Shown here is a 93-nucleotide RNA sequence from Calditerricola satsumensis, a member of the family "Selenocysteine transfer RNA". The family has 109 seed sequences and 4,211 matches in Rfam 15.1. Gene Ontology term of the family: triplet codon-amino acid adaptor activity.

RNA sequence: GGGAGCGGUUGGGUGGCUGGUGCCCCCUCCGGCCUUCAAAGCCGAGCAGGACCCGCGUGCCGGGUCCGGUGGGUUCGAUUCCCACACGCUCCC
Numbered sequence: 001g002g003g004a005g006c007g008g009u010u011g012g013g014u015g016g017c018u019g020g021u022g023c024c025c026c027c028u029c030c031g032g033c034c035u036u037c038a039a040a041g042c043c044g045a046g047c048a049g050g051a052c053c054c055g056c057g058u059g060c061c062g063g064g065u066c067c068g069g070u071g072g073g074u075u076c077g078a079u080u081c082c083c084a085c086a087c088g089c090u091c092c093c
Stems, first nucleotide, its partner, number of pairs: 001093007012027002015024003029046001030044004049067005070084004